RNA sequence: CGGAGAUGGCCAUGAUGGUUUAAACCAGAACGUCGGAACCUGGCUGAAGUUUUGCUGAUGAACCUUUUAUGGCUCUGAGGCUUCUCUGGUG
Numbered sequence: 001c002g003g004a005g006a007u008g009g010c011c012a013u014g015a016u017g018g019u020u021u022a023a024a025c026c027a028g029a030a031c032g033u034c035g036g037a038a039c040c041u042g043g044c045u046g047a048a049g050u051u052u053u054g055c056u057g058a059u060g061a062a063c064c065u066u067u068u069a070u071g072g073c074u075c076u077g078a079g080g081c082u083u084c085u086c087u088g089g090u091g
Base pairs, nucleotide, nucleotide: 004085005084006083008081010079
Small nucleolar RNA SNORD91 family: a 91-nucleotide sequence from Mauremys mutica. The family's RNA type in Rfam is C/D-box small nucleolar RNA. For this family Rfam cites "RNomics: an experimental approach that identifies 201 candidates for novel, small, non-messenger RNAs in mouse" (Huttenhofer et al., EMBO J, 2001).